Description:
A member of the RNA family "Archaeal large subunit ribosomal RNA" from Acidianus hospitalis, 451 nucleotides of a longer RNA. The sequence is in the family's curated seed alignment. NCBI's taxonomy places the organism under Archaea, Thermoproteota, Sulfolobales, Sulfolobaceae, Acidianus hospitalis. For this family Rfam cites "Crystal structure of the ribosome at 5.5 A resolution" (Yusupov et al., Science, 2001).
RNA sequence: CCCUCCGAAAUGCGUCUUAGCGCAGCCUCCCCGGAGGUGGCCUGCGGGGUAGAGUCACUGAUUGGGGGUUCGAGGCGAAAGCCUCGGACUCCCAGUCAAACUCCGAACCUGCAGGCGCCUGAGAAGGGGGGAGUGGGUCACCCGGCGUAAGGUUGGGUGGCAAGAGGGGAACAACCCAGACCUGGGUUAAGGUCCCUAAGUGCUGGCUAAGUGCCAUGGGAAGAGCGUCCCCAGCCUUAGACAGCGGGGAGGUGGGCCCAGCAGCAGCCAUCCUCUAAGGAGUGCGUAACAGCUCACCCGCCGAGGCUGGGGGCCUCGAAGACUGGUCGGGGCUCAAGCCAGCCACCGAGACCCAGGGGGUGGGGCUCAUUGAGCUCCACUCGGUAGGAGGGCGUCGUGGUGGGUCAGAAGGUGGGCCGUGAGGUCCACUGGACCCGCCACGAGUGCCGAU
Numbered sequence: 001c002c003c004u005c006c007g008a009a010a011u012g013c014g015u016c017u018u019a020g021c022g023c024a025g026c027c028u029c030c031c032c033g034g035a036g037g038u039g040g041c042c043u044g045c046g047g048g049g050u051a052g053a054g055u056c057a058c059u060g061a062u063u064g065g066g067g068g069u070u071c072g073a074g075g076c077g078a079a080a081g082c083c084u085c086g087g088a089c090u091c092c093c094a095g096u097c098a099a100a101c102u103c104c105g106a107a108c109c110u111g112c113a114g115g116c117g118c119c120u121g122a123g124a125a126g127g128g129g130g131g132a133g134u135g136g137g138u139c140a141c142c143c144g145g146c147g148u149a150a151g152g153u154u155g156g157g158u159g160g161c162a163a164g165a166g167g168g169g170a171a172c173a174a175c176c177c178a179g180a181c182c183u184g185g186g187u188u189a190a191g192g193u194c195c196c197u198a199a200g201u202g203c204u205g206g207c208u209a210a211g212u213g214c215c216a217u218g219g220g221a222a223g224a225g226c227g228u229c230c231c232c233a234g235c236c237u238u239a240g241a242c243a244g245c246g247g248g249g250a251g252g253u254g255g256g257c258c259c260a261g262c263a264g265c266a267g268c269c270a271u272c273c274u275c276u277a278a279g280g281a282g283u284g285c286g287u288a289a290c291a292g293c294u295c296a297c298c299c300g301c302c303g304a305g306g307c308u309g310g311g312g313g314c315c316u317c318g319a320a321g322a323c324u325g326g327u328c329g330g331g332g333c334u335c336a337a338g339c340c341a342g343c344c345a346c347c348g349a350g351a352c353c354c355a356g357g358g359g360g361u362g363g364g365g366c367u368c369a370u371u372g373a374g375c376u377c378c379a380c381u382c383g384g385u386a387g388g389a390g391g392g393c394g395u396c397g398u399g400g401u402g403g404g405u406c407a408g409a410a411g412g413u414g415g416g417c418c419g420u421g422a423g424g425u426c427c428a429c430u431g432g433a434c435c436c437g438c439c440a441c442g443a444g445u446g447c448c449g450a451u
Stems, first nucleotide, its partner, number of pairs: 001392006011024005026133001027131006036119003040116008052104001053102002060097010071086006137161009166177003181357007191347003200344001202343006223317003227314010244301005250274003255269003275279001280295001284293002358382001361379005393446001395443010411430008